The record is a 115-nucleotide RNA sequence from Bacillus sp. FJAT-27986, which matches "epsC RNA" in Rfam.
The organism belongs to Bacillus, within Bacteria.
The family's consensus secondary structure is taken from published work.
It scores 49 bits against the family's covariance model.
[Rfam]
Nucleotides: 115
Base pairs, nucleotide, nucleotide: 001019002018003017007034008033009032010031011030012029013028036097037096038095039093041091042090043089045087046086051069053068054067055066056065057064071081072080101115102114103113104112105111
Number, partner (000 for none) and nucleotide at each position: 001019a002018g003017g004000u005000g006000u007034u008033g009032c010031c011030u012029c013028c014000u015000a016000u017003c018002u019001u020000u021000u022000a023000u024000c025000a026000a027000a028013g029012g030011a031010g032009g033008c034007a035000c036097u037096u038095g039093g040000c041091u042090a043089g044000g045087u046086u047000g048000u049000g050000g051069g052000u053068u054067a055066a056065g057064a058000g059000a060000a061000g062000a063000u064057u065056c066055u067054u068053a069051c070000u071081a072080u073000a074000c075000g076000a077000c078000u079000c080072a081071u082000u083000a084000a085000u086046a087045g088000g089043c090042u091041g092000c093039u094000g095038u096037g097036a098000u099000g100000u101115u102114g103113g104112g105111u106000u107000a108000g109000u110000c111105g112104c113103c114102c115101a